[Rfam]
RNA sequence: AAUAUUAUAAUACAGAUUACAUAUAUAGAUCCAUAAUAAGGAUGGACGUUUCUACUAGCUGCCGUAAAUAGCAAACUAUACGUAAUUCAUAGGAAUUA
Dot-bracket structure: .................(((.((((....(((((.......))))).........(.((((.......)))).)..)))).)))..............